The record is a 116-nucleotide RNA sequence from Thermoactinomyces daqus, which matches "PyrR binding site" in Rfam. It scores 55 bits against the family's covariance model. Pairs were carried over by alignment from the consensus structure, which is taken from published work. By type it is a cis-regulatory element. About the family: This family represents the PyrR binding site and terminator structure. This RNA structure is found upstream of a variety of genes involved in pyrimidine biosynthesis and transport. The alignment also includes a portion of the antiterminator structure.
[Rfam]
RNA sequence: UUUCCCUUUUAAGGCGGUCCCGUGAGGCCGGCAAAGGGAACGCGGAAUCGUGCUGCGCAUGAACGGUGUAUCUAUCCUGCGUCUCUUUGCCAUACGGGUAAAGAGACUUUUUUUAU
Numbered sequence: 001u002u003u004c005c006c007u008u009u010u011a012a013g014g015c016g017g018u019c020c021c022g023u024g025a026g027g028c029c030g031g032c033a034a035a036g037g038g039a040a041c042g043c044g045g046a047a048u049c050g051u052g053c054u055g056c057g058c059a060u061g062a063a064c065g066g067u068g069u070a071u072c073u074a075u076c077c078u079g080c081g082u083c084u085c086u087u088u089g090c091c092a093u094a095c096g097g098g099u100a101a102a103g104a105g106a107c108u109u110u111u112u113u114u115a116u
Stems, first nucleotide, its partner, number of pairs: 003039007015030005042072001045069001047067005053061001079109001081107010